[Rfam]
A member of the RNA family "pan motif" from Salipaludibacillus keqinensis, 85 nucleotides long. Lineage of the source: Bacteria > Bacillati > Bacillota > Caryophanales > Salipaludibacillus. A search with the family's covariance model found it, with a score of 64 bits.
RNA sequence: UGGACAGUAUCAUAUUGAACUGUACCGAGUGAUAUGACUAGAAACAUAGAUCUGCCUUGAUCCAUUUAUGGACGGGGACAGAAGG
Numbered sequence: 001u002g003g004a005c006a007g008u009a010u011c012a013u014a015u016u017g018a019a020c021u022g023u024a025c026c027g028a029g030u031g032a033u034a035u036g037a038c039u040a041g042a043a044a045c046a047u048a049g050a051u052c053u054g055c056c057u058u059g060a061u062c063c064a065u066u067u068a069u070g071g072a073c074g075g076g077g078a079c080a081g082a083a084g085g
Stems, first nucleotide, its partner, number of pairs: 001027003004023005010018002052081003055077005061072003